[Rfam]
RNA sequence: UGGAAUUUUUGCUCUUUUAGUAUUUGUCCAGAAGGUUUCUCUCGUUGAGAGAAGCCCCU
Numbered sequence: 001u002g003g004a005a006u007u008u009u010u011g012c013u014c015u016u017u018u019a020g021u022a023u024u025u026g027u028c029c030a031g032a033a034g035g036u037u038u039c040u041c042u043c044g045u046u047g048a049g050a051g052a053a054g055c056c057c058c059u
Base pairs, nucleotide, nucleotide: 034056035055036054037053038052039051040050041049042048043047